[Rfam]
Annotation: Alphacoronavirus 3'UTR: a 285-nucleotide RNA sequence from Coronavirus BtRs-AlphaCoV/YN2018. Rfam links the family to the GO term viral RNA genome replication. It scores 209 bits against the family's covariance model. Rfam's curators write: The 3' UTR of alphacoronaviruses consists of two small hairpins (PK-SL2) which can form an alternate conformation (PK-SL1) where the loop region of the second hairpin interacts with the stem of the first hairpin. PK-SL2 has been confirmed in HCoV-229E and HCoV-NL63 by in vitro structure probing experiments. Downstream of this pseudoknot lies the hypervariable region (HVR), which is supported by many covarying basepairs in alphacoronaviruses. Taxonomically the source falls in Alphacoronavirus (Viruses, Riboviria, Pisoniviricetes, Cornidovirineae).
RNA sequence: UAAUUGCUGCACCUCUGAUUUAUUAGCUUUUAGUUAGUAACAUGCACCCAAGCCUUAAGCUUGUUUGGUGCUACUCUUAUACAGAAUGGUAGGCCUGUUUAUAAGCUAGUAUAAGUAGAGUUUAUAGAUGUUGCUGCACUUAGACCAACGUACAUGUACCUAGACAUCCUAGAGUCAGAGUAAUCAAAGAUCCGCUUAGACGAGCCAACAUUGGAAGAGCUGUCAUAGGACCUAGAAUACAUGUAUUAGUAGUUGUUAGUAGUUGCGGCUUCGAUAGGGAUACAC
Numbered sequence: 001u002a003a004u005u006g007c008u009g010c011a012c013c014u015c016u017g018a019u020u021u022a023u024u025a026g027c028u029u030u031u032a033g034u035u036a037g038u039a040a041c042a043u044g045c046a047c048c049c050a051a052g053c054c055u056u057a058a059g060c061u062u063g064u065u066u067g068g069u070g071c072u073a074c075u076c077u078u079a080u081a082c083a084g085a086a087u088g089g090u091a092g093g094c095c096u097g098u099u100u101a102u103a104a105g106c107u108a109g110u111a112u113a114a115g116u117a118g119a120g121u122u123u124a125u126a127g128a129u130g131u132u133g134c135u136g137c138a139c140u141u142a143g144a145c146c147a148a149c150g151u152a153c154a155u156g157u158a159c160c161u162a163g164a165c166a167u168c169c170u171a172g173a174g175u176c177a178g179a180g181u182a183a184u185c186a187a188a189g190a191u192c193c194g195c196u197u198a199g200a201c202g203a204g205c206c207a208a209c210a211u212u213g214g215a216a217g218a219g220c221u222g223u224c225a226u227a228g229g230a231c232c233u234a235g236a237a238u239a240c241a242u243g244u245a246u247u248a249g250u251a252g253u254u255g256u257u258a259g260u261a262g263u264u265g266c267g268g269c270u271u272c273g274a275u276a277g278g279g280a281u282a283c284a285c
Stems, first nucleotide, its partner, number of pairs: 076093005097129011133269006143254003150246005160235004167230005174224001176222003195204002205214002